[Rfam]
RNA sequence: GGAGGUAUUGGCCCUCCGUCGUUGGCUGACAGGAGCGAGCGACAAAUCGCCAUAACGCUGCAUUAGUUAAGAGCUUUUGUGGUGAGCGGUUAUGGAAAAGGCGUAAUAUGAUUACGUCAGA
Numbered sequence: 001g002g003a004g005g006u007a008u009u010g011g012c013c014c015u016c017c018g019u020c021g022u023u024g025g026c027u028g029a030c031a032g033g034a035g036c037g038a039g040c041g042a043c044a045a046a047u048c049g050c051c052a053u054a055a056c057g058c059u060g061c062a063u064u065a066g067u068u069a070a071g072a073g074c075u076u077u078u079g080u081g082g083u084g085a086g087c088g089g090u091u092a093u094g095g096a097a098a099a100g101g102c103g104u105a106a107u108a109u110g111a112u113u114a115c116g117u118c119a120g121a
Stems, first nucleotide, its partner, number of pairs: 001017005018043006025036003047121002050095002053092004057083002060080003065075003100118006
Rfam assigns this 121-nucleotide sequence from Limihaloglobus sulfuriphilus to the family "Group II catalytic intron D1-D4-2". Rfam links the family to the GO term Group II intron splicing. The source organism's lineage runs through Bacteria, Planctomycetota, Phycisphaerae, Sedimentisphaerales and Limihaloglobus. The literature on the family includes a 2001 paper in Trends Genet by Bonen and Vogel, "The ins and outs of group II introns". The family has 144 seed sequences and 1,231 matches in Rfam 15.1. The pairing is the family consensus, mapped onto this sequence.